[Rfam]
The family of this 111-nucleotide RNA sequence from Tritonibacter litoralis is "Guanidine-I riboswitch aptamer".
RNA sequence: CUGCAGGGUGCUUAGGGUUCCGUUGUCGUAAACUGACAAGUCUGGUCCGAGAAGCGCCACCUGUGGGGCAAAUUCCCCUUAGGCACACGGCGGGCCAAAAUCCCGGGAGAG
Number, nucleotide and partner (000 for none) at each position: 001c000002u000003g000004c000005a000006g000007g058008g057009u056010g055011c054012u053013u000014a000015g048016g047017g000018u000019u000020c045021c044022g042023u039024u038025g037026u036027c035028g034029u000030a000031a000032a000033c000034u028035g027036a026037c025038a024039a023040g000041u000042c022043u000044g021045g020046u000047c016048c015049g000050a000051g000052a000053a012054g011055c010056g009057c008058c007059a000060c083061c082062u081063g080064u000065g078066g077067g076068g075069c000070a000071a000072a000073u000074u000075c068076c067077c066078c065079u000080u063081a062082g061083g060084c000085a000086c106087a000088c109089g000090g000091c000092g104093g103094g102095c000096c000097a000098a000099a000100a000101u000102c094103c093104c092105g000106g086107g000108a000109g088110a000111g000
This family represents a conserved RNA structure found upstream of the ykkC and yxkD genes in Bacillus subtilis and related genes in other bacteria.